[Rfam]
Nucleotides: 135
Base pairs, nucleotide, nucleotide: 004128006126011121012119013118014117015116016115019055020054021053022052023051024050026048027047028046029045034041035040057072058071059070060069061068075100076099077098078097079096080095081094082093083092084091085090101111102110
Number, partner (000 for none) and nucleotide at each position: 001000a002000u003000a004128a005000a006126g007000u008000c009000u010000a011121c012119u013118c014117u015116c016115c017000g018000a019055g020054c021053c022052g023051a024050u025000c026048a027047a028046c029045c030000u031000a032000a033000c034041g035040a036000g037000a038000a039000a040035u041034c042000c043000a044000u045029g046028g047027u048026u049000c050024a051023u052022u053021g054020g055019c056000c057072a058071g059070g060069g061068c062000u063000u064000u065000a066000a067000c068061g069060c070059c071058c072057u073000c074000g075100g076099g077098g078097u079096a080095u081094g082093u083092c084091u085090a086000g087000a088000a089000a090085u091084g092083g093082g094081c095080a096079u097078g098077c099076c100075u101111u102110c103000a104000c105000a106000u107000u108000u109000u110102g111101a112000a113000a114000a115016g116015g117014a118013g119012g120000u121011g122000g123000u124000c125000g126006c127000a128004u129000g130000g131000a132000u133000u134000g135000a

Background:
A member of the RNA family "Molybdenum/Tungsten riboswitch aptamer (Moco RNA motif)" from Desulfosporosinus sp. I2, 135 nucleotides long. The base pairs follow the family's consensus structure, which is taken from published work.